[Rfam]
tRNA: an 81-nucleotide RNA from Acholeplasma laidlawii.
It is annotated as a transfer RNA.
The base pairs follow the family's consensus structure, which is taken from published work.
Rfam's curators write: Transfer RNA (tRNA) molecules are approximately 80 nucleotides in length.

Nucleotides: 081
Base pairs, nucleotide, nucleotide: 001080002079003078004077005076006075007074010025011024012023027043028042029041030040031039057073058072059071060070061069
Number, partner (000 for none) and nucleotide at each position: 001080c002079c003078c004077c005076g006075u007074g008000u009000g010025g011024c012023g013000a014000a015000a016000u017000g018000g019000u020000a021000g022000a023012c024011g025010c026000g027043c028042u029041u030040g031039a032000c033000u034000c035000a036000a037000a038000a039031u040030c041029a042028a043027g044000u045000a046000g047000u048000g049000a050000a051000g052000a053000c054000u055000g056000u057073g058072c059071u060070g061069g062000u063000u064000c065000g066000a067000g068000u069061c070060c071059g072058g073057u074007c075006a076005c077004g078003g079002g080001g081000a